RNA sequence: CGUUCCGAGGAGCGUUGCGACGAAUUUAUUUCGCCAGGCUCGGAGUCUUCAAACUGCGCUCACGUUAC
Dot-bracket structure: .(((((((............((((.....))))......)))))))......................
RNA: SAH (S-adenosyl-L-homocysteine) riboswitch aptamer